[Rfam]
A member of the RNA family "mir-395 microRNA precursor family" from Triticum turgidum, 86 nucleotides long. Its family is annotated with RISC complex and miRNA-mediated post-transcriptional gene silencing in the Gene Ontology. About the family: mir-395 was identified in both Arabidopsis thaliana and Oryza sativa computationally and was later experimentally verified. mir-395 is thought to target mRNAs coding for ATP sulphurylases. The mature sequence is excised from the 3' arm of the hairpin. The organism belongs to Triticum turgidum, within Eukaryota. The family's consensus secondary structure was predicted with PFOLD.

RNA sequence: GCCUCGUCGGGAGUUCUCUUCAAGCACUUCAGGACAUGUCUUUUCAAGAACUUCUCUGAAGUGUUUGGGGGAACUCUCGGUGUCAC
Numbered sequence: 001g002c003c004u005c006g007u008c009g010g011g012a013g014u015u016c017u018c019u020u021c022a023a024g025c026a027c028u029u030c031a032g033g034a035c036a037u038g039u040c041u042u043u044u045c046a047a048g049a050a051c052u053u054c055u056c057u058g059a060a061g062u063g064u065u066u067g068g069g070g071g072a073a074c075u076c077u078c079g080g081u082g083u084c085a086c
Base pairs, nucleotide, nucleotide: 005082006081007080008079009078011076012075013074014073015072016071017070018069019068020067022066023065024064025063026062027061028060029059030058031057032056033055036052